Source information: mir-1302 microRNA precursor family: a 52-nucleotide RNA sequence from Tursiops truncatus. The base pairs follow the family's consensus structure, which was predicted with WAR. NCBI's taxonomy places the organism under Eukaryota, Opisthokonta, Chordata, Euteleostomi, Tursiops.
RNA sequence: AUUUUAGUGUAAGUAUAUCCUAUGUAAUAUUUGGGAUAUACUUAUGCUAAAA
Numbered sequence: 001a002u003u004u005u006a007g008u009g010u011a012a013g014u015a016u017a018u019c020c021u022a023u024g025u026a027a028u029a030u031u032u033g034g035g036a037u038a039u040a041c042u043u044a045u046g047c048u049a050a051a052a
Base pairs, nucleotide, nucleotide: 006048007047008046009045010044011043012042014040015039016038018036019035020034021033022031